[Rfam]
RNA: Purine riboswitch aptamer
Organism: Paenibacillus crassostreae
RNA sequence: AUAAAGCACAACAACAUAUUUCGUAUAAUUCCGAGAAUAGGCUUGGAAGUCUCUACGAGGUCACCAUAAUGACCUGGCUACGAUUAUAAAAGAAACUCAC
Numbered sequence: 001a002u003a004a005a006g007c008a009c010a011a012c013a014a015c016a017u018a019u020u021u022c023g024u025a026u027a028a029u030u031c032c033g034a035g036a037a038u039a040g041g042c043u044u045g046g047a048a049g050u051c052u053c054u055a056c057g058a059g060g061u062c063a064c065c066a067u068a069a070u071g072a073c074c075u076g077g078c079u080a081c082g083a084u085u086a087u088a089a090a091a092g093a094a095a096c097u098c099a100c
Base pairs, nucleotide, nucleotide: 021083022082023081024080025079029048030047031046032045033044034043035042058075059074060073061072062071063070